[Rfam]
RNA sequence: CCAGUCGGCCGGACGGCCGCUGCGGCGAGUGAUCGCCGGAGAGGAAAGUCCGGGCUCCAUGGAGAUACGGCGCCGGAUAACGUCCGGCGGGGGCGACCCCAGGGAAAGUGCCACAGAGAGCAGACCGCCCGCGGCUCGUCCGCGGGUAAGGGUGAAAGGGUGCGGUAAGAGCGCACCGCGCGACCGGUAACGGAAGCGGCAUGGCAAACCCCGCCAGGAGCAAAACCGAAUAGGGGCGACGGGCGUCUCCGCUCCGCGGGGGCGCGGGCCUGUCUCCAGGUCGUCGCCCGGGUUGGUUGCUUGAGGCGUCCAGCAAUGGCCGCCCUAGAGGAAUGGCCGUCACGCGCGGAGAAGGGGCGACCCGGCUCCGCGCCAUACAGAACCCGGCUUACAGGCCGGCUGGCGCA
Numbered sequence: 001c002c003a004g005u006c007g008g009c010c011g012g013a014c015g016g017c018c019g020c021u022g023c024g025g026c027g028a029g030u031g032a033u034c035g036c037c038g039g040a041g042a043g044g045a046a047a048g049u050c051c052g053g054g055c056u057c058c059a060u061g062g063a064g065a066u067a068c069g070g071c072g073c074c075g076g077a078u079a080a081c082g083u084c085c086g087g088c089g090g091g092g093g094c095g096a097c098c099c100c101a102g103g104g105a106a107a108g109u110g111c112c113a114c115a116g117a118g119a120g121c122a123g124a125c126c127g128c129c130c131g132c133g134g135c136u137c138g139u140c141c142g143c144g145g146g147u148a149a150g151g152g153u154g155a156a157a158g159g160g161u162g163c164g165g166u167a168a169g170a171g172c173g174c175a176c177c178g179c180g181c182g183a184c185c186g187g188u189a190a191c192g193g194a195a196g197c198g199g200c201a202u203g204g205c206a207a208a209c210c211c212c213g214c215c216a217g218g219a220g221c222a223a224a225a226c227c228g229a230a231u232a233g234g235g236g237c238g239a240c241g242g243g244c245g246u247c248u249c250c251g252c253u254c255c256g257c258g259g260g261g262g263c264g265c266g267g268g269c270c271u272g273u274c275u276c277c278a279g280g281u282c283g284u285c286g287c288c289c290g291g292g293u294u295g296g297u298u299g300c301u302u303g304a305g306g307c308g309u310c311c312a313g314c315a316a317u318g319g320c321c322g323c324c325c326u327a328g329a330g331g332a333a334u335g336g337c338c339g340u341c342a343c344g345c346g347c348g349g350a351g352a353a354g355g356g357g358c359g360a361c362c363c364g365g366c367u368c369c370g371c372g373c374c375a376u377a378c379a380g381a382a383c384c385c386g387g388c389u390u391a392c393a394g395g396c397c398g399g400c401u402g403g404c405g406c407a
Stems, first nucleotide, its partner, number of pairs: 001403010011392001012341007020041002023038006046390003050387005055220004064275001069215004073087005088102001089100004103211002108209002110205003125151002127147008159177006178200001179198003184193003224298004234289006267282005305324004310319003

Bacterial RNase P class A: a 407-nucleotide sequence from Methylopila jiangsuensis.
Lineage of the source: Bacteria > Pseudomonadota > Alphaproteobacteria > Methylopilaceae > Methylopila.
The literature on the family includes a 1999 paper in Nucleic Acids Res by Brown, "The Ribonuclease P Database".
Gene Ontology terms of the family: dimeric ribonuclease P complex, tRNA processing and ribonuclease P activity.
Pairs were carried over by alignment from the consensus structure, which is taken from published work.